[Rfam]
EFASI RNA: a 147-nucleotide sequence from Salmonella enterica. Rfam classes the family as a small RNA. It is one of the family's seed sequences.

RNA sequence: UUAACGCGAUAUCGAUGGCGACGUCAUGAAAAUGACGUCGGGGGCGACCUGGAAACAGGUACAGCUACGGCUGCGGUCAGUUUUCACUGAUUUGGGACCCCGCAAUACCUCAACAUCUUGCAUUCCCUGAUGCACAGAUAUCCGUUA
Numbered sequence: 001u002u003a004a005c006g007c008g009a010u011a012u013c014g015a016u017g018g019c020g021a022c023g024u025c026a027u028g029a030a031a032a033u034g035a036c037g038u039c040g041g042g043g044g045c046g047a048c049c050u051g052g053a054a055a056c057a058g059g060u061a062c063a064g065c066u067a068c069g070g071c072u073g074c075g076g077u078c079a080g081u082u083u084u085c086a087c088u089g090a091u092u093u094g095g096g097a098c099c100c101c102g103c104a105a106u107a108c109c110u111c112a113a114c115a116u117c118u119u120g121c122a123u124u125c126c127c128u129g130a131u132g133c134a135c136a137g138a139u140a141u142c143c144g145u146u147a
Stems, first nucleotide, its partner, number of pairs: 002147004008142006019040008041101004048059004074094003078089004